The family of this 126-nucleotide RNA is "Small nucleolar RNA SNORA25".
Rfam describes the family as follows. ACA25 is a member of the H/ACA class of snoRNA that guide the sites of modification of uridines to pseudouridines.
Rfam 15.1 lists 1,129 matches to the family in 449 species.
RNA sequence: AGAUCAUUUCAAAGAGGGCUCGUGGGGCUAUGAAACCAUGAGCUCUUAAUGCUAUGACCAAAGACUGAAGUUCUCUAUAGGACGCCAUAGCACUCAAUGGUGCUGUUUUCCUGAGGAGACAUAAGA
Numbered sequence: 001a002g003a004u005c006a007u008u009u010c011a012a013a014g015a016g017g018g019c020u021c022g023u024g025g026g027g028c029u030a031u032g033a034a035a036c037c038a039u040g041a042g043c044u045c046u047u048a049a050u051g052c053u054a055u056g057a058c059c060a061a062a063g064a065c066u067g068a069a070g071u072u073c074u075c076u077a078u079a080g081g082a083c084g085c086c087a088u089a090g091c092a093c094u095c096a097a098u099g100g101u102g103c104u105g106u107u108u109u110c111c112u113g114a115g116g117a118g119a120c121a122u123a124a125g126a
Stems, first nucleotide, its partner, number of pairs: 002059001004057004014047008026037002072119005079112004087106008
Dot-bracket structure: .(.((((......((((((((....((........))..))))))))......)))).)............(((((..((((....((((((((....))))))))..))))..))))).......